[Rfam]
RNA sequence: AGGUGAUGGCAAGUGUAGCGGUCGUAGCUUCCCACCGGUCCUUUGUGACCGCGCCCUUUGGGCACACCUAUGAGCGAAAGUCCCUGAACUUGGUAACUCUCAGGUAGAAAGUACCCUCACGCAGUCUGAGCAGUCGGAUGAAGCGAUGGUCAACGCCAUGAUAUGAGCGGGUCAGAGCGCCUUCUGAUGAUCGUUCGAGCAAAGAGACGCACAUGUGAACAGCAUAGGGCUUACUCUGCCAGUCACC
Numbered sequence: 001a002g003g004u005g006a007u008g009g010c011a012a013g014u015g016u017a018g019c020g021g022u023c024g025u026a027g028c029u030u031c032c033c034a035c036c037g038g039u040c041c042u043u044u045g046u047g048a049c050c051g052c053g054c055c056c057u058u059u060g061g062g063c064a065c066a067c068c069u070a071u072g073a074g075c076g077a078a079a080g081u082c083c084c085u086g087a088a089c090u091u092g093g094u095a096a097c098u099c100u101c102a103g104g105u106a107g108a109a110a111g112u113a114c115c116c117u118c119a120c121g122c123a124g125u126c127u128g129a130g131c132a133g134u135c136g137g138a139u140g141a142a143g144c145g146a147u148g149g150u151c152a153a154c155g156c157c158a159u160g161a162u163a164u165g166a167g168c169g170g171g172u173c174a175g176a177g178c179g180c181c182u183u184c185u186g187a188u189g190a191u192c193g194u195u196c197g198a199g200c201a202a203a204g205a206g207a208c209g210c211a212c213a214u215g216u217g218a219a220c221a222g223c224a225u226a227g228g229g230c231u232u233a234c235u236c237u238g239c240c241a242g243u244c245a246c247c
Stems, first nucleotide, its partner, number of pairs: 002247006008240004014213003018210002022074001023072005036051005078232003082229004103115004124139006141183003147179002150176002153172002156169001
Background: This 247-nucleotide RNA from Steinernema hermaphroditum belongs to the Rfam family "RNase MRP". Rfam's curators write: RNase MRP is an enzymatically active ribonucleoprotein with two distinct roles in eukaryotes. The source organism's lineage runs through Eukaryota, Eumetazoa, Chromadorea, Tylenchina and Steinernema. Rfam links the family to the GO terms ribonuclease MRP activity, rRNA processing and ribonuclease MRP complex. The family's RNA type in Rfam is ribozyme. The base pairs follow the family's consensus structure, which is taken from published work.